[Rfam]
The record is a 142-nucleotide RNA sequence from Protea cynaroides, which matches "small nucleolar RNA snoR134" in Rfam. The family's RNA type in Rfam is H/ACA-box small nucleolar RNA. The source organism's lineage runs through Eukaryota, Streptophytina, Embryophyta, Spermatophyta and Protea. Gene Ontology terms of the family: nucleolus and RNA processing.
RNA sequence: CCGCACGGUGCACCCCGGGCUUCUCUGAAAGCAUCACUGACGAUGAAAGCCCCAAUGCGCGUGCUAAAGUGUGCCUCUCAGUGUUGCAGUUUGGCUUUGAUGUAUCCAACAGCUGAUCUGUGUCAAAGCAGUGGCUAUAUCC
Number, nucleotide and partner (000 for none) at each position: 001c000002c000003g064004c063005a062006c061007g060008g000009u000010g058011c057012a000013c000014c000015c000016c000017g052018g051019g050020c049021u048022u046023c045024u043025c042026u000027g000028a000029a000030a000031g000032c000033a000034u000035c000036a000037c000038u000039g000040a000041c000042g025043a024044u000045g023046a022047a000048a021049g020050c019051c018052c017053c000054a000055a000056u000057g011058c010059g000060c007061g006062u005063g004064c003065u000066a000067a000068a000069g000070u000071g000072u000073g135074c134075c133076u000077c131078u130079c000080a000081g000082u125083g124084u000085u122086g121087c120088a119089g118090u000091u000092u000093g000094g113095c112096u111097u000098u000099g000100a000101u000102g000103u000104a000105u000106c000107c000108a000109a000110c000111a096112g095113c094114u000115g000116a000117u000118c089119u088120g087121u086122g085123u000124c083125a082126a000127a000128g000129c000130a078131g077132u000133g075134g074135c073136u000137a000138u000139a000140u000141c000142c000